[Rfam]
RNA sequence: CGGUCGGUCUCGCGAGGGGUCGGCUGACCGGGCAGAAGUCAGCAGAGGCCAUAGUGCUGGCCGGGAGGUCGGGAAGGGC
Numbered sequence: 001c002g003g004u005c006g007g008u009c010u011c012g013c014g015a016g017g018g019g020u021c022g023g024c025u026g027a028c029c030g031g032g033c034a035g036a037a038g039u040c041a042g043c044a045g046a047g048g049c050c051a052u053a054g055u056g057c058u059g060g061c062c063g064g065g066a067g068g069u070c071g072g073g074a075a076g077g078g079c
Base pairs, nucleotide, nucleotide: 001026002025004023005022006021007020008019009018010017011016039046040045048079049078050077057072058071059070060069061068062067
RNA: Group II catalytic intron D1-D4-1